Record summary: Shown here is a 107-nucleotide RNA sequence from Rhododendron simsii, a member of the family "Small nucleolar RNA snoR100". Rfam 15.1 lists 1,851 matches to the family in 220 species. The family's RNA type in Rfam is H/ACA-box small nucleolar RNA. The literature on the family includes a 2002 paper in Curr Biol by Marker et al., "Experimental RNomics: identification of 140 candidates for small non-messenger RNAs in the plant Arabidopsis thaliana".
RNA sequence: CGAUGCAAUAAACCCCCUAAUGUGCACAUAAAUUGAUUUGGGUCACUAGGCCUGCCUCUCUGAUGUCAUUUGGCUUUGAUUUGGGGGCAUGGUUCUGCAGCAAAAUG
Numbered sequence: 001c002g003a004u005g006c007a008a009u010a011a012a013c014c015c016c017c018u019a020a021u022g023u024g025c026a027c028a029u030a031a032a033u034u035g036a037u038u039u040g041g042g043u044c045a046c047u048a049g050g051c052c053u054g055c056c057u058c059u060c061u062g063a064u065g066u067c068a069u070u071u072g073g074c075u076u077u078g079a080u081u082u083g084g085g086g087g088c089a090u091g092g093u094u095c096u097g098c099a100g101c102a103a104a105a106u107g
Stems, first nucleotide, its partner, number of pairs: 013024001015022001040090001042088003050080001052078001054074003